[Rfam]
RNA: Small nucleolar RNA SNORD67
RNA sequence: UGUGAGAGUGAUGAGUUGCACUGAUCAGUUGGGGUGUUUGGUGCAGUGGCAUCAGUACCCCGACCUAACCUGAUUGUUGCAUUUCAGAAGACCUAACUGUGUCGAU
Numbered sequence: 001u002g003u004g005a006g007a008g009u010g011a012u013g014a015g016u017u018g019c020a021c022u023g024a025u026c027a028g029u030u031g032g033g034g035u036g037u038u039u040g041g042u043g044c045a046g047u048g049g050c051a052u053c054a055g056u057a058c059c060c061c062g063a064c065c066u067a068a069c070c071u072g073a074u075u076g077u078u079g080c081a082u083u084u085c086a087g088a089a090g091a092c093c094u095a096a097c098u099g100u101g102u103c104g105a106u
Stems, first nucleotide, its partner, number of pairs: 006103002025067001027066002029063004034058003040053005